Shown here is a 90-nucleotide RNA from Paenibacillus sp. FSL R5-0912, a member of the family "c-di-GMP-I riboswitch aptamer".
[Rfam]
RNA sequence: GACGUAUAAACGCAAACCGUUCGAAAGGACGGGACGCAAAGUCCAGGAGUCUAAAGCGCGAUGGAGCGCAACGAUCGUCCGACUGCCGUA
Numbered sequence: 001g002a003c004g005u006a007u008a009a010a011c012g013c014a015a016a017c018c019g020u021u022c023g024a025a026a027g028g029a030c031g032g033g034a035c036g037c038a039a040a041g042u043c044c045a046g047g048a049g050u051c052u053a054a055a056g057c058g059c060g061a062u063g064g065a066g067c068g069c070a071a072c073g074a075u076c077g078u079c080c081g082a083c084u085g086c087c088g089u090a
Stems, first nucleotide, its partner, number of pairs: 012037002017032006040084004046080003049075003056069004